[Rfam]
RNA sequence: AGUAGCAAAUGGCCUCUCGCGAUCGGCUUGCAGGAGCAGGUCGCAAACCACCGCAAGCGGCUCGGGUCAAAAGCCCCGGUCGUGAGCGUUGCGGAAAAGGUGCCAGAAGGCAUCAGGU
Numbered sequence: 001a002g003u004a005g006c007a008a009a010u011g012g013c014c015u016c017u018c019g020c021g022a023u024c025g026g027c028u029u030g031c032a033g034g035a036g037c038a039g040g041u042c043g044c045a046a047a048c049c050a051c052c053g054c055a056a057g058c059g060g061c062u063c064g065g066g067u068c069a070a071a072a073g074c075c076c077c078g079g080u081c082g083u084g085a086g087c088g089u090u091g092c093g094g095a096a097a098a099g100g101u102g103c104c105a106g107a108a109g110g111c112a113u114c115a116g117g118u
Stems, first nucleotide, its partner, number of pairs: 001015002019044006026037004049117001051094006057083002060080003064076004099114006
RNA: Group II catalytic intron D1-D4-2
Organism: Allostigmatella aurantiaca